[Rfam]
RNA sequence: GAUCAGGCGGGAGGCUGAGACGCGCGGGCCCACGAUCCGGCCGCCUGGACCGCGCCGAGCCACUGGCGAGACCGAACCGCGAGGGG
Numbered sequence: 001g002a003u004c005a006g007g008c009g010g011g012a013g014g015c016u017g018a019g020a021c022g023c024g025c026g027g028g029c030c031c032a033c034g035a036u037c038c039g040g041c042c043g044c045c046u047g048g049a050c051c052g053c054g055c056c057g058a059g060c061c062a063c064u065g066g067c068g069a070g071a072c073c074g075a076a077c078c079g080c081g082a083g084g085g086g
Stems, first nucleotide, its partner, number of pairs: 003084002007080004013061003022055004027051002030048001039073002042068004